[Rfam]
A member of the RNA family "mir-9223 microRNA precursor family" from Cnephaeus nilssonii, 77 nucleotides long.
RNA sequence: GGUGUUUCUCGGGUGAUGCACCCUGGAAUCAGGCUCCCUCCUCCCUGGUUCCGGGAGCAUCACCUGAGAAAGUGACC
Numbered sequence: 001g002g003u004g005u006u007u008c009u010c011g012g013g014u015g016a017u018g019c020a021c022c023c024u025g026g027a028a029u030c031a032g033g034c035u036c037c038c039u040c041c042u043c044c045c046u047g048g049u050u051c052c053g054g055g056a057g058c059a060u061c062a063c064c065u066g067a068g069a070a071a072g073u074g075a076c077c
Base pairs, nucleotide, nucleotide: 002076003075005071006070007069008068009067010066011065012064013063014062015061016060017059019057021055022054023053025052026051027050028049029048030047031046032045033044

Its family is annotated with RISC complex and miRNA-mediated post-transcriptional gene silencing in the Gene Ontology.